[Rfam]
RNA sequence: ACAGUGUUCCGGCUCUGUCGCUGGCGAGAUUUAUCUUGCGAGAGGAAAGUCCGGGCAGCAUAGGAUGCUCCACUUCUGAAAAUGGAAGCUGUUGGUGACAGCAGGAGAAAGCAGAAGAAAAUAACCGCCAUAUAUUUGGUAAGGGUGAGAAGGUGGUGUAAGAGACCACCAGCUGGCAAGUGAUUGACAGGCUGUGCAAUCUGGAGGCUGCAAGUUCAUGUAAACCAUCGUCUGAGGGUUAUCCGUCCGAAUUUUAUUACGGUGGAGGGUAGAAUGCUUGAGUUAUGGGGUGACUCAUAAUCUAGAUAAAUGACAGGCGCUUUAAUAUGUUUCGCAUAUUAAAGAACAAAACCCGGCUUAUAGGAACACUGUUUUC
Numbered sequence: 001a002c003a004g005u006g007u008u009c010c011g012g013c014u015c016u017g018u019c020g021c022u023g024g025c026g027a028g029a030u031u032u033a034u035c036u037u038g039c040g041a042g043a044g045g046a047a048a049g050u051c052c053g054g055g056c057a058g059c060a061u062a063g064g065a066u067g068c069u070c071c072a073c074u075u076c077u078g079a080a081a082a083u084g085g086a087a088g089c090u091g092u093u094g095g096u097g098a099c100a101g102c103a104g105g106a107g108a109a110a111g112c113a114g115a116a117g118a119a120a121a122u123a124a125c126c127g128c129c130a131u132a133u134a135u136u137u138g139g140u141a142a143g144g145g146u147g148a149g150a151a152g153g154u155g156g157u158g159u160a161a162g163a164g165a166c167c168a169c170c171a172g173c174u175g176g177c178a179a180g181u182g183a184u185u186g187a188c189a190g191g192c193u194g195u196g197c198a199a200u201c202u203g204g205a206g207g208c209u210g211c212a213a214g215u216u217c218a219u220g221u222a223a224a225c226c227a228u229c230g231u232c233u234g235a236g237g238g239u240u241a242u243c244c245g246u247c248c249g250a251a252u253u254u255u256a257u258u259a260c261g262g263u264g265g266a267g268g269g270u271a272g273a274a275u276g277c278u279u280g281a282g283u284u285a286u287g288g289g290g291u292g293a294c295u296c297a298u299a300a301u302c303u304a305g306a307u308a309a310a311u312g313a314c315a316g317g318c319g320c321u322u323u324a325a326u327a328u329g330u331u332u333c334g335c336a337u338a339u340u341a342a343a344g345a346a347c348a349a350a351a352c353c354c355g356g357c358u359u360a361u362a363g364g365a366a367c368a369c370u371g372u373u374u375u376c
Stems, first nucleotide, its partner, number of pairs: 001372010011361001012318002015316005021042002024039006047359003051356005056210004068206005073088005089104001091102004105201002111197003125144002127140004152170006172192001173190003177186003214275004225265005249257001282301008
This 376-nucleotide RNA sequence from Prevotella sp. CAG:1185 belongs to the Rfam family "Bacterial RNase P class A". Pairs were carried over by alignment from the consensus structure, which is taken from published work. Taxonomically the source falls in Prevotella (Bacteria, Bacteroidota, Bacteroidia, Prevotellaceae). Ribonuclease P (RNase P) is a ubiquitous endoribonuclease, found in archaea, bacteria and eukarya as well as chloroplasts and mitochondria.